[Rfam]
RNA sequence: ACAUACACUGAGUGGCCCGAUUAUUAUGAUCUCUGAACGCAUAAUAAUCUAGUCACUCAGUGUGUGU
Numbered sequence: 001a002c003a004u005a006c007a008c009u010g011a012g013u014g015g016c017c018c019g020a021u022u023a024u025u026a027u028g029a030u031c032u033c034u035g036a037a038c039g040c041a042u043a044a045u046a047a048u049c050u051a052g053u054c055a056c057u058c059a060g061u062g063u064g065u066g067u
Stems, first nucleotide, its partner, number of pairs: 004064013019049010